[Rfam]
Record summary: Shown here is a 525-nucleotide RNA from Corchorus capsularis, a member of the family "Group I catalytic intron". Rfam links the family to the GO term Group I intron splicing. A reference for the family is Cech (1990), "Self-splicing of group I introns", Annu Rev Biochem. The base pairs follow the family's consensus structure, which is taken from published work.

RNA sequence: CUACGGACUUAAUUGGAUUGGAUUGAGCCUUGGUAUGGAAACCUACUAAGUGAUAACUUUCAAAUUCAGAGAAACCCUGGAAUGAACAGUGGGCAAUCCUGAGCCAAAUCCUAUUAUUUUACGAAAAUAAACAAACAAAGGUUCAGCAAGGGAGAAUAAAAAAAAGGGAUAGGUGCAGAGACUCAAUGGAAGCUAUUCUAACAAAUGAGGGUGACUCCUUUUGCCUUGGUAAAGGAUUCCUUAUAUCGAAACUCCAGAAAGGAUGAAAGAUAAACCUAUUUAUAUAGGUAUACUAAUGAAAACUAUUUCAAAAAAAGACGAUCCGAAUCCGUAUUUUUUUUAUUCUAUGCAACAUCAAUUUAUAUGAAAAAAAAGAAUUGUUGUGAAUCGAUUCCAAGUUGAAGCACAAAUCGAAUAGAAUAUUCAUUAAUCAAAUCAUUCACUCCACAGUCUGAUAAAUCUUUUGAAAAACUGAUUAAUCGGACGAGAAUAAAGAUAGAGUCCCGUUCUACAUGUCAAUAUCAA
Numbered sequence: 001c002u003a004c005g006g007a008c009u010u011a012a013u014u015g016g017a018u019u020g021g022a023u024u025g026a027g028c029c030u031u032g033g034u035a036u037g038g039a040a041a042c043c044u045a046c047u048a049a050g051u052g053a054u055a056a057c058u059u060u061c062a063a064a065u066u067c068a069g070a071g072a073a074a075c076c077c078u079g080g081a082a083u084g085a086a087c088a089g090u091g092g093g094c095a096a097u098c099c100u101g102a103g104c105c106a107a108a109u110c111c112u113a114u115u116a117u118u119u120u121a122c123g124a125a126a127a128u129a130a131a132c133a134a135a136c137a138a139a140g141g142u143u144c145a146g147c148a149a150g151g152g153a154g155a156a157u158a159a160a161a162a163a164a165a166g167g168g169a170u171a172g173g174u175g176c177a178g179a180g181a182c183u184c185a186a187u188g189g190a191a192g193c194u195a196u197u198c199u200a201a202c203a204a205a206u207g208a209g210g211g212u213g214a215c216u217c218c219u220u221u222u223g224c225c226u227u228g229g230u231a232a233a234g235g236a237u238u239c240c241u242u243a244u245a246u247c248g249a250a251a252c253u254c255c256a257g258a259a260a261g262g263a264u265g266a267a268a269g270a271u272a273a274a275c276c277u278a279u280u281u282a283u284a285u286a287g288g289u290a291u292a293c294u295a296a297u298g299a300a301a302a303c304u305a306u307u308u309c310a311a312a313a314a315a316a317g318a319c320g321a322u323c324c325g326a327a328u329c330c331g332u333a334u335u336u337u338u339u340u341u342a343u344u345c346u347a348u349g350c351a352a353c354a355u356c357a358a359u360u361u362a363u364a365u366g367a368a369a370a371a372a373a374a375g376a377a378u379u380g381u382u383g384u385g386a387a388u389c390g391a392u393u394c395c396a397a398g399u400u401g402a403a404g405c406a407c408a409a410a411u412c413g414a415a416u417a418g419a420a421u422a423u424u425c426a427u428u429a430a431u432c433a434a435a436u437c438a439u440u441c442a443c444u445c446c447a448c449a450g451u452c453u454g455a456u457a458a459a460u461c462u463u464u465u466g467a468a469a470a471a472c473u474g475a476u477u478a479a480u481c482g483g484a485c486g487a488g489a490a491u492a493a494a495g496a497u498a499g500a501g502u503c504c505c506g507u508u509c510u511a512c513a514u515g516u517c518a519a520u521a522u523c524a525a
Base pairs, nucleotide, nucleotide: 005029008027009026010025011024012023013022055194057192058191059190061188062187066102067101068100069099071097075093076092077091103174104173109168110167111166117161118160119159120158178504180503181502182501183500184499196490197489198488199487511522513520514519

Background
The organism belongs to Corchorus, within Eukaryota. Group I catalytic introns are large self-splicing ribozymes. They catalyse their own excision from mRNA, tRNA and rRNA precursors in a wide range of organisms. The core secondary structure consists of 9 paired regions (P1-P9). These fold to essentially two domains - the P4-P6 domain (formed from the stacking of P5, P4, P6 and P6a helices) and the P3-P9 domain (formed from the P8, P3, P7 and P9 helices).